[Rfam]
U4 spliceosomal RNA: a 144-nucleotide RNA sequence from Acer yangbiense. The family's consensus secondary structure is taken from published work. Rfam's curators write: U4 small nuclear RNA (U4 snRNA) is a component of the major U2-dependent spliceosome. By type it is a spliceosomal small nuclear RNA. The organism belongs to Acer, within Eukaryota. Its family is annotated with spliceosomal tri-snRNP complex assembly and U4 snRNP in the Gene Ontology.

RNA sequence: AUCUUUGCGCUUGGGGCAAUGACGCAGCUAGUGAGGUUCUAACCGAGGCGCGUCAAUUGCUGGUUGAAAACUAUUUCCAAACCCCCUCCUUGGCCUUGGUUCUGCCUUGGCCAUCGAGAAUUUCUGGAAGGGCCCCCUUUGGGG
Numbered sequence: 001a002u003c004u005u006u007g008c009g010c011u012u013g014g015g016g017c018a019a020u021g022a023c024g025c026a027g028c029u030a031g032u033g034a035g036g037u038u039c040u041a042a043c044c045g046a047g048g049c050g051c052g053u054c055a056a057u058u059g060c061u062g063g064u065u066g067a068a069a070a071c072u073a074u075u076u077c078c079a080a081a082c083c084c085c086c087u088c089c090u091u092g093g094c095c096u097u098g099g100u101u102c103u104g105c106c107u108u109g110g111c112c113a114u115c116g117a118g119a120a121u122u123u124c125u126g127g128a129a130g131g132g133c134c135c136c137c138u139u140u141g142g143g144g
Stems, first nucleotide, its partner, number of pairs: 021054005027049003035044003086118003091113005098106002133144004